[Rfam]
Nucleotides: 083
Stems, first nucleotide, its partner, number of pairs: 003081004
Number, partner (000 for none) and nucleotide at each position: 001000u002000c003081u004080g005079c006078a007000a008000g009000u010000g011000a012000c013000g014000a015000u016000u017000a018000a019000a020000c021000a022000g023000a024000c025000a026000g027000g028000g029000a030000c031000a032000u033000c034000a035000g036000a037000a038000a039000u040000u041000a042000u043000c044000u045000g046000u047000g048000u049000u050000g051000a052000c053000u054000a055000a056000a057000g058000u059000c060000u061000a062000u063000a064000a065000u066000g067000g068000g069000a070000a071000u072000a073000u074000c075000u076000g077000a078006u079005g080004c081003a082000a083000u